The record is a 73-nucleotide RNA from Hevea brasiliensis, which matches "Small nucleolar RNA R21" in Rfam.
Rfam classes the family as a C/D-box small nucleolar RNA.
Rfam 15.1 lists 472 matches to the family in 146 species.
The organism belongs to Hevea, within Eukaryota.
The family's consensus secondary structure was predicted with PFOLD.
It scores 55 bits against the family's covariance model.
For this family Rfam cites "Identification of 66 box C/D snoRNAs in Arabidopsis thaliana: extensive gene duplications generated multiple isoforms predicting new ribosomal RNA 2'-O-methylation sites" (Barneche et al., J Mol Biol, 2001).
Nucleotides: 073
Stems, first nucleotide, its partner, number of pairs: 001073006
Number, partner (000 for none) and nucleotide at each position: 001073c002072a003071u004070c005069u006068c007000u008000a009000u010000g011000a012000g013000g014000a015000u016000u017000g018000g019000a020000u021000g022000u023000u024000a025000a026000u027000u028000a029000a030000a031000g032000u033000a034000g035000u036000g037000g038000a039000c040000u041000g042000a043000u044000c045000c046000a047000u048000u049000g050000a051000u052000g053000a054000u055000u056000a057000a058000u059000c060000u061000a062000u063000u064000c065000u066000g067000a068006g069005g070004g071003a072002u073001g